[Rfam]
RNA sequence: CUUUCCACGUUGAUCCCGGUAAUGGUGAUAAAGCGAGGAAUUUUUAAAUUUGUCUGAUUAUGCCUCAACGCAGCAAUGGCGUAAGACGUAAUGGUUAAUCAGGCAGUUAGCGGGCUGCGGAUUGCAGCUUGGCCGGCAUAAGGAACGCAUCCUGUGCAUCAUUUCUCAGGUGUGGUUCCUUCUGUAAAUGUGCUGUCGUUCAUGUAGAAAGACAGGCUACCGAAAUAAUGCGCCCCUCUGCAAGCGACAACCGUGAGGUUGACGGCUUUGCGACAAGUCACGGGGCCGUCGGUGUUUACCCGGUCAUGGGGUUUUUUUGCCCGCAGCUCUGAUGCCAA
Numbered sequence: 001c002u003u004u005c006c007a008c009g010u011u012g013a014u015c016c017c018g019g020u021a022a023u024g025g026u027g028a029u030a031a032a033g034c035g036a037g038g039a040a041u042u043u044u045u046a047a048a049u050u051u052g053u054c055u056g057a058u059u060a061u062g063c064c065u066c067a068a069c070g071c072a073g074c075a076a077u078g079g080c081g082u083a084a085g086a087c088g089u090a091a092u093g094g095u096u097a098a099u100c101a102g103g104c105a106g107u108u109a110g111c112g113g114g115c116u117g118c119g120g121a122u123u124g125c126a127g128c129u130u131g132g133c134c135g136g137c138a139u140a141a142g143g144a145a146c147g148c149a150u151c152c153u154g155u156g157c158a159u160c161a162u163u164u165c166u167c168a169g170g171u172g173u174g175g176u177u178c179c180u181u182c183u184g185u186a187a188a189u190g191u192g193c194u195g196u197c198g199u200u201c202a203u204g205u206a207g208a209a210a211g212a213c214a215g216g217c218u219a220c221c222g223a224a225a226u227a228a229u230g231c232g233c234c235c236c237u238c239u240g241c242a243a244g245c246g247a248c249a250a251c252c253g254u255g256a257g258g259u260u261g262a263c264g265g266c267u268u269u270g271c272g273a274c275a276a277g278u279c280a281c282g283g284g285g286c287c288g289u290c291g292g293u294g295u296u297u298a299c300c301c302g303g304u305c306a307u308g309g310g311g312u313u314u315u316u317u318u319g320c321c322c323g324c325a326g327c328u329c330u331g332a333u334g335c336c337a338a
Stems, first nucleotide, its partner, number of pairs: 003040004008035001014030001017027002050106008062095003068089003073080002112329009122319001130306007142179005151170004190217002193215004199209003219293005232286005245264002248261005

This 338-nucleotide sequence from Biostraticola tofi belongs to the Rfam family "RNase E 5' UTR element". The source organism's lineage runs through Bacteria, Pseudomonadati, Pseudomonadota, Bruguierivoracaceae and Biostraticola. Rfam links the family to the GO term regulation of gene expression. The family's RNA type in Rfam is cis-regulatory element. Rfam's curators write: This family represents a conserved element found in the 5' UTR of RNase E mRNA. RNase E is a key regulatory enzyme in the pathway of mRNA degradation in E. coli that is able to auto-regulate the degradation of its own mRNA in response to changes in RNase E activity. This rne 5' UTR element acts as a sensor of cellular RNase E concentration enabling tight regulation of RNase E concentration and synthesis.